The record is a 109-nucleotide RNA sequence from Vibrio sediminis, which matches "Qrr RNA" in Rfam. Rfam classes the family as a small RNA. About the family: This family represents a set of small RNAs (the Qrr RNAs) that are thought to be involved in the regulation of quorum sensing in Vibrio species. Rfam links the family to the GO term quorum sensing. Taxonomically the source falls in Vibrio (Bacteria, Pseudomonadati, Gammaproteobacteria, Vibrionales).
RNA sequence: UGACCCUUCUUAAAGCCGAGGGUCACCUAGCCAACUGACGUUGUUAGUGAAUAUAUUUGUUCACACUAUCUAUAAAGCCAAUCGCGUUUUUGCGGUUGGCUCUUUUUUU
Dot-bracket structure: ((((((.............))))))...............((((..(((((((....))))))).......))))..((((((((......))))))))..........